Shown here is a 94-nucleotide RNA sequence from Aquilegia coerulea, a member of the family "Small nucleolar RNA snoR8a". The literature on the family includes a 2001 paper in RNA by Brown et al., "Multiple snoRNA gene clusters from Arabidopsis". Pairs were carried over by alignment from the consensus structure, which was predicted with WAR. Rfam classes the family as a C/D-box small nucleolar RNA.
[Rfam]
RNA sequence: GUGAUUGCGAUGAUUGUAAAAAUUCCUCGUACUGAAUGCUUAAUGCAUAUAUUGUAUGACAGACUCUAUAUACACCCAUAGAAUAUGAGCAUUC
Numbered sequence: 001g002u003g004a005u006u007g008c009g010a011u012g013a014u015u016g017u018a019a020a021a022a023u024u025c026c027u028c029g030u031a032c033u034g035a036a037u038g039c040u041u042a043a044u045g046c047a048u049a050u051a052u053u054g055u056a057u058g059a060c061a062g063a064c065u066c067u068a069u070a071u072a073c074a075c076c077c078a079u080a081g082a083a084u085a086u087g088a089g090c091a092u093u094c
Base pairs, nucleotide, nucleotide: 003094004093006091007090